[Rfam]
RNA sequence: UGGCGCCCAACGUGGGGCUCGAAGUAAGAGGGACACCGUGAGGGACGUCGUCGAAGCUGGCGUCGAAGGAAGGAAGAAAUCCAGAGAAGGAGUCACCAUGGGAACCUGCUGUGGCCUUGCUCUCUGGUAAGUGGGCGACGAUAUUAUGGGUCAGGAAAUAAGUCAGCAUGAGUUGUUUGUAGAAGGACUCAGCAAAGCAUUAAAGACACGAGGAGUAAAGGUGAAAGUAAACCGAUUAAUUAAAUAUUUUGAUUAUAUUAAGGACAUUUGCCCCU
Number, nucleotide and partner (000 for none) at each position: 001u000002g000003g000004c000005g000006c032007c031008c030009a000010a000011c000012g000013u026014g025015g000016g000017g000018c000019u000020c000021g000022a000023a000024g000025u014026a013027a000028g000029a000030g008031g007032g006033a000034c000035a000036c000037c047038g046039u045040g000041a000042g000043g000044g000045a039046c038047g037048u000049c000050g000051u000052c000053g000054a000055a000056g000057c000058u000059g000060g000061c000062g000063u000064c000065g000066a000067a000068g000069g000070a000071a000072g000073g000074a000075a000076g000077a000078a000079a000080u000081c000082c000083a000084g000085a125086g124087a123088a121089g120090g000091a000092g116093u000094c000095a000096c000097c113098a112099u111100g110101g109102g000103a000104a000105c000106c000107u000108g000109c101110u100111g099112u098113g097114g000115c000116c092117u000118u000119g000120c089121u088122c000123u087124c086125u085126g000127g000128u000129a000130a000131g000132u153133g152134g151135g000136c150137g000138a000139c000140g000141a000142u000143a000144u000145u000146a000147u000148g000149g000150g136151u134152c133153a132154g000155g000156a000157a000158a000159u202160a201161a200162g198163u197164c000165a000166g000167c000168a000169u000170g000171a000172g000173u000174u000175g000176u000177u000178u000179g000180u000181a000182g000183a000184a000185g000186g000187a000188c000189u000190c000191a000192g000193c000194a000195a000196a000197g163198c162199a000200u161201u160202a159203a000204a000205g000206a000207c000208a000209c251210g250211a249212g248213g247214a000215g245216u244217a000218a000219a237220g236221g000222u234223g233224a000225a000226a000227g000228u000229a000230a000231a000232c000233c223234g222235a000236u220237u219238a000239a000240u000241u000242a000243a000244a216245u215246a000247u213248u212249u211250u210251g209252a000253u000254u000255a000256u000257a000258u000259u000260a275261a000262g273263g272264a000265c270266a000267u000268u000269u000270g265271c000272c263273c262274c000275u260
Rfam assigns this 275-nucleotide RNA sequence from Saimiri boliviensis to the family "Mason-Pfizer monkey virus packaging signal". Rfam 15.1 lists 2,921 matches to the family in 53 species. The literature on the family includes a 1995 paper in J Virol by Harrison et al., "Secondary structure model of the Mason-Pfizer monkey virus 5' leader sequence: identification of a structural motif common to a variety of retroviruses". The match comes from Rfam's covariance-model search (125 bits). This family represents a group of sequences that are related to the Mason-Pfizer monkey virus (MPMV) packaging signal. The packaging signal is located in the 5' UTR and is required for specific RNA encapsidation.